[Rfam]
RNA sequence: AAGGAGCAAUACCGACCCUCUUAUUCUAUCAAGAGGGUCGGUAUUGCUCCUU
Numbered sequence: 001a002a003g004g005a006g007c008a009a010u011a012c013c014g015a016c017c018c019u020c021u022u023a024u025u026c027u028a029u030c031a032a033g034a035g036g037g038u039c040g041g042u043a044u045u046g047c048u049c050c051u052u
Stems, first nucleotide, its partner, number of pairs: 001052013018035005
RNA: Plastid-psbA-3 3UTR RNA